[Rfam]
Annotation: Rfam assigns this 133-nucleotide RNA from Pectinatus cerevisiiphilus to the family "c-di-AMP riboswitch aptamer (ydaO/yuaA leader)". The source organism's lineage runs through Bacteria, Bacillota, Negativicutes, Selenomonadaceae and Pectinatus. A search with the family's covariance model found it, with a score of 85 bits. From the family's description: This family represents a conserved RNA structure found upstream of the ydaO and yuaA genes in Bacillus subtilis and related genes in other bacteria.
RNA sequence: AGUAAAUAAAAGCCGAAUCCAACUCAGGAGCGGGGGAACCAAUUUUGGGGUGAAUGUUGUUUUUGACAAGGGCCGGUUUCUUCUUCUGUCCCUAAUCCGACAGCUAACCUCGCAGGUAACAAAAAGCAAAGAG
Number, nucleotide and partner (000 for none) at each position: 001a000002g000003u000004a000005a000006a000007u000008a000009a000010a000011a000012g117013c116014c115015g000016a000017a000018u029019c028020c027021a000022a000023c000024u000025c000026a000027g020028g019029a018030g113031c112032g111033g110034g109035g108036g000037a000038a000039c000040c047041a046042a000043u000044u000045u000046u041047g040048g098049g097050g096051u000052g000053a000054a000055u000056g067057u066058u065059g064060u000061u000062u000063u000064u059065g058066a057067c056068a000069a000070g092071g091072g090073c000074c000075g000076g000077u000078u000079u000080c000081u000082u000083c000084u000085u000086c000087u000088g000089u000090c072091c071092c070093u000094a000095a000096u050097c049098c048099g000100a000101c000102a000103g000104c000105u000106a000107a000108c035109c034110u033111c032112g031113c030114a000115g014116g013117u012118a000119a000120c000121a000122a000123a000124a000125a000126g000127c000128a000129a000130a000131g000132a000133g000